[Rfam]
This 378-nucleotide RNA from Paracoccus subflavus belongs to the Rfam family "Bacterial RNase P class A". Pairs were carried over by alignment from the consensus structure, which is taken from published work.
RNA sequence: GCGGAGGGCUGGAUGACCGCGGCAGGGCGACCUGUCGAGGAAAGUCCGGACUCCAUGAGGCGACGGUGCCGGGUAACGCCCGGCGGGGGCAACCCCAGGGAAAGCGCCACAGAGAACAGACCGCCUGCAUCCGUGCAGGCAAGGGUGAAACGGCGGGGUAAGAGCCCACCGGGGGCCUGGCAACAGGCCCCGCAUGGCAAGCCCCACCGGGAGCAAUGCCGAAUAGGGACCGCGCGCGGGGGAAACCCCGCAGGGCCGCCUUGCCCCAGCAGGUCCGGGUAGGCAGCUUGAUCCGGCGGGCAACCGCCGGGCCAGAGGAAUGGUCAUCCAGCCGCAUCAUGCGGUGGACAGAAUCCGGCUUACAGGCCCUCCGCGCAU
Numbered sequence: 001g002c003g004g005a006g007g008g009c010u011g012g013a014u015g016a017c018c019g020c021g022g023c024a025g026g027g028c029g030a031c032c033u034g035u036c037g038a039g040g041a042a043a044g045u046c047c048g049g050a051c052u053c054c055a056u057g058a059g060g061c062g063a064c065g066g067u068g069c070c071g072g073g074u075a076a077c078g079c080c081c082g083g084c085g086g087g088g089g090c091a092a093c094c095c096c097a098g099g100g101a102a103a104g105c106g107c108c109a110c111a112g113a114g115a116a117c118a119g120a121c122c123g124c125c126u127g128c129a130u131c132c133g134u135g136c137a138g139g140c141a142a143g144g145g146u147g148a149a150a151c152g153g154c155g156g157g158g159u160a161a162g163a164g165c166c167c168a169c170c171g172g173g174g175g176c177c178u179g180g181c182a183a184c185a186g187g188c189c190c191c192g193c194a195u196g197g198c199a200a201g202c203c204c205c206a207c208c209g210g211g212a213g214c215a216a217u218g219c220c221g222a223a224u225a226g227g228g229a230c231c232g233c234g235c236g237c238g239g240g241g242g243a244a245a246c247c248c249c250g251c252a253g254g255g256c257c258g259c260c261u262u263g264c265c266c267c268a269g270c271a272g273g274u275c276c277g278g279g280u281a282g283g284c285a286g287c288u289u290g291a292u293c294c295g296g297c298g299g300g301c302a303a304c305c306g307c308c309g310g311g312c313c314a315g316a317g318g319a320a321u322g323g324u325c326a327u328c329c330a331g332c333c334g335c336a337u338c339a340u341g342c343g344g345u346g347g348a349c350a351g352a353a354u355c356c357g358g359c360u361u362a363c364a365g366g367c368c369c370u371c372c373g374c375g376c377a378u
Stems, first nucleotide, its partner, number of pairs: 001374010011363001012328007020037007042361003046358005051213004059262002062259001064209005069083005084098001085096004099204002104202002106198003121144002123140007152170002155167003171193001172191008217285004227276005253267003257263001292311008